[Rfam]
RNA sequence: AUAACAUAUCGGCUUAGUCCUGAGCAAUCAGGAACGGAGGAACCAAUUUUUUGGGGUUAAUUCUACAGUUGUCUGUAGAAAGGAUGAGAUGCUCUUUCGCCAUCCUACCCGUCAGCUAACUUCGUCGGCUAAAGCGGAGGAGGU
Numbered sequence: 001a002u003a004a005c006a007u008a009u010c011g012g013c014u015u016a017g018u019c020c021u022g023a024g025c026a027a028u029c030a031g032g033a034a035c036g037g038a039g040g041a042a043c044c045a046a047u048u049u050u051u052u053g054g055g056g057u058u059a060a061u062u063c064u065a066c067a068g069u070u071g072u073c074u075g076u077a078g079a080a081a082g083g084a085u086g087a088g089a090u091g092c093u094c095u096u097u098c099g100c101c102a103u104c105c106u107a108c109c110c111g112u113c114a115g116c117u118a119a120c121u122u123c124g125u126c127g128g129c130u131a132a133a134g135c136g137g138a139g140g141a142g143g144u
Base pairs, nucleotide, nucleotide: 011130012129013128014127018033019032020031021030022029023028034125035124036123037122038121039120044053045052054110055109056108062079063078064077065076082105083104084103085102
The family of this 144-nucleotide RNA sequence from Paenisporosarcina sp. HGH0030 is "c-di-AMP riboswitch aptamer (ydaO/yuaA leader)". A search with the family's covariance model found it, with a score of 76 bits. Taxonomically the source falls in Paenisporosarcina (Bacteria, Bacillota, Bacilli, Caryophanaceae). This family represents a conserved RNA structure found upstream of the ydaO and yuaA genes in Bacillus subtilis and related genes in other bacteria. The ydaO/yuaA element is thought to act as a genetic 'off' switch for the ydaO and yuaA genes in its native state. It is believed that the element may be triggered during osmotic shock leading to activation of ydaO, a predicted amino acid transporter gene, and members of the yuaA-yubG operon which code for KtrA and KtrB K+ transporters. Rfam links the family to the GO terms regulation of gene expression and cyclic-di-AMP binding.